[Rfam]
RNA sequence: GUGCUGGUGCUACUGAAUGGAAGACUAGUGAUUUUGUUGUGGCAUUGAUGGCAGAACAACAAGUCUCAGUCUUCCUCUCGGUGCAAGCAA
Numbered sequence: 001g002u003g004c005u006g007g008u009g010c011u012a013c014u015g016a017a018u019g020g021a022a023g024a025c026u027a028g029u030g031a032u033u034u035u036g037u038u039g040u041g042g043c044a045u046u047g048a049u050g051g052c053a054g055a056a057c058a059a060c061a062a063g064u065c066u067c068a069g070u071c072u073u074c075c076u077c078u079c080g081g082u083g084c085a086a087g088c089a090a
Stems, first nucleotide, its partner, number of pairs: 002089004011083001013081004019075002022072005028067001030065005036060005
mir-7 microRNA precursor family: a 90-nucleotide RNA from Merluccius polli. Rfam links the family to the GO terms miRNA-mediated post-transcriptional gene silencing and RISC complex. About the family: This family represents the microRNA (miRNA) precursor mir-7. NCBI's taxonomy places the organism under Eukaryota, Craniata, Euteleostomi, Acanthomorphata, Merluccius.